[Rfam]
RNA: Makes More Granules Regulator RNA (mmgR)
RNA sequence: AGGCGACGCCUUUCAGGCAUCCUCUCCUAGACUCAUACGGGCCGAUCCUUCUGGAUCGGCCCUUUUUUUACGUCCAU
Dot-bracket structure: .......((((...))))....................(((((((((......)))))))))...............
Numbered sequence: 001a002g003g004c005g006a007c008g009c010c011u012u013u014c015a016g017g018c019a020u021c022c023u024c025u026c027c028u029a030g031a032c033u034c035a036u037a038c039g040g041g042c043c044g045a046u047c048c049u050u051c052u053g054g055a056u057c058g059g060c061c062c063u064u065u066u067u068u069u070a071c072g073u074c075c076a077u
Stems, first nucleotide, its partner, number of pairs: 008018004039062009